Archaeal large subunit ribosomal RNA: a 446-nucleotide part of an RNA from uncultured marine group II euryarchaeote 37F11.
Rfam's curators put it in the seed alignment.
NCBI's taxonomy places the organism under Archaea, Methanobacteriati, Thermoplasmatota, Candidatus Poseidoniia, Candidatus Poseidoniales.
RNA sequence: CCGCGUGAAACUACUCGUAGGUAGACGUUAGUGGAGAUUGAUUACGCUGUAGAGCACUGAUUGUGCGUUUAGGGGGAGCAAUUCCUCGGCGUGCUGCCAAACUCCGAAGGUGUAAUCGUUGUAGAUACUAGCAGUGAGUGAUGGUGGGUAAGCUACCAUUACGUAAGGUGAACAAACCAGCCUGAAGUUAAGGUCCCUAAAUAUCAGUUAAGUGUCACAGACAAACCGUGUCCGUGGUCGAAAACAACCAGAAGGUGGGCUUAGAAGCAGCCAUCCUUGAAAGAGUUCGUAACAGAUCACUGGUCUAGCUUGCGGGCCGGGAAAAGGGACGGGGCUCAAACUGAUUACCGAUACUUCAGACCAUCGUAAGAUGAUGUGGUAACGCGGCGUCGUGCUUGGGUGGAAGGUAGGCUGUGAAGUCUACUGGACCGGGUACGAAUGAGAGU
Number, nucleotide and partner (000 for none) at each position: 001c387002c386003g385004c384005g383006u382007g000008a000009a000010a000011c024012u023013a022014c021015u020016c000017g000018u000019a000020g015021g014022u013023a012024g011025a000026c134027g132028u131029u130030a129031g128032u127033g000034g000035a000036g120037a119038u118039u000040g117041a116042u115043u114044a113045c112046g111047c110048u000049g000050u000051a000052g105053a103054g102055c000056a000057c000058u000059g098060a000061u096062u000063g094064u093065g092066c091067g090068u089069u000070u000071a000072g087073g086074g085075g084076g083077a082078g000079c000080a000081a000082u077083u076084c075085c074086u073087c072088g000089g068090c067091g066092u065093g064094c063095u000096g061097c000098c059099a000100a000101a000102c054103u053104c000105c052106g000107a000108a000109g000110g047111u046112g045113u044114a043115a042116u041117c040118g038119u037120u036121g000122u000123a000124g000125a000126u000127a032128c031129u030130a029131g028132c027133a000134g026135u000136g000137a000138g162139u161140g160141a159142u158143g157144g156145u155146g154147g000148g000149u000150a000151a000152g000153c000154u146155a145156c144157c143158a142159u141160u140161a139162c138163g000164u000165a000166a000167g178168g177169u176170g000171a000172a000173c000174a000175a000176a169177c168178c167179a000180g000181c000182c359183u358184g357185a356186a355187g354188u353189u000190a000191a000192g349193g348194u347195c000196c000197c000198u000199a000200a000201a346202u000203a345204u344205c343206a342207g341208u340209u000210a000211a000212g000213u000214g000215u000216c000217a000218c000219a000220g000221a000222c000223a000224a000225a000226c320227c319228g318229u000230g317231u316232c315233c314234g313235u312236g311237g310238u000239c308240g000241a000242a000243a000244a000245c000246a000247a304248c303249c302250a301251g300252a000253a277254g276255g275256u000257g000258g272259g271260c270261u000262u000263a000264g000265a000266a000267g000268c000269a000270g260271c259272c258273a000274u000275c255276c254277u253278u282279g000280a000281a000282a278283g298284a000285g000286u000287u296288c295289g000290u000291a000292a000293c000294a000295g288296a287297u000298c283299a000300c251301u250302g249303g248304u247305c000306u000307a000308g239309c000310u237311u236312g235313c234314g233315g232316g231317c230318c228319g227320g226321g000322a000323a000324a000325a000326g000327g000328g000329a000330c000331g000332g000333g000334g000335c000336u000337c000338a000339a000340a208341c207342u206343g205344a204345u203346u201347a194348c193349c192350g000351a000352u000353a188354c187355u186356u185357c184358a183359g182360a377361c376362c373363a372364u371365c370366g000367u000368a000369a000370g365371a364372u363373g362374a000375u000376g361377u360378g000379g000380u000381a000382a006383c005384g004385c003386g002387g001388c441389g000390u438391c437392g436393u435394g434395c433396u432397u431398g430399g429400g000401u000402g000403g000404a000405a000406g425407g424408u423409a422410g421411g420412c419413u418414g000415u000416g000417a000418a413419g412420u411421c410422u409423a408424c407425u406426g000427g000428a000429c399430c398431g397432g396433g395434u394435a393436c392437g391438a390439a000440u000441g388442a000443g000444a000445g000446u000